[Rfam]
RNA sequence: AUACGAAAAGGGCAAAUUCAUUGAAAAAUGAAGACGCAAAGCUAUAGGGACUAACGUGUUGCCAACACUAUGUCAGCCAGUUACCGAU
Numbered sequence: 001a002u003a004c005g006a007a008a009a010g011g012g013c014a015a016a017u018u019c020a021u022u023g024a025a026a027a028a029u030g031a032a033g034a035c036g037c038a039a040a041g042c043u044a045u046a047g048g049g050a051c052u053a054a055c056g057u058g059u060u061g062c063c064a065a066c067a068c069u070a071u072g073u074c075a076g077c078c079a080g081u082u083a084c085c086g087a088u
Base pairs, nucleotide, nucleotide: 012037013036017032018031019030020029021028022027040082041081042080043079047078048077049074050073051072056068057067058066059065
The family of this 88-nucleotide sequence from Heyndrickxia ginsengihumi is "c-di-GMP-I riboswitch aptamer". The organism belongs to Heyndrickxia, within Bacteria. GEMM was predicted in a large-scale screen for bacterial structured RNA regulatory elements. Genes associated with GEMM are involved in a diverse array of functions, including chemotaxis regulation, signal transduction, secretion and chitin.